Nucleotides: 052
Base pairs, nucleotide, nucleotide: 001050002049003048004047005046006045007044008043009042010041011040012039013038014037015036016035017034018029019028
Number, partner (000 for none) and nucleotide at each position: 001050u002049g003048a004047g005046a006045u007044g008043a009042a010041a011040u012039c013038a014037g015036c016035g017034u018029u019028u020000g021000g022000a023000u024000a025000u026000g027000a028019g029018a030000u031000u032000c033000c034017a035016c036015g037014u038013u039012g040011a041010u042009u043008u044007c045006a046005u047004c048003u049002u050001a051000u052000g

The record is a 52-nucleotide RNA from Solanum commersonii, which matches "MIR1886 microRNA precursor family" in Rfam. Its family is annotated with RISC complex and miRNA-mediated post-transcriptional gene silencing in the Gene Ontology.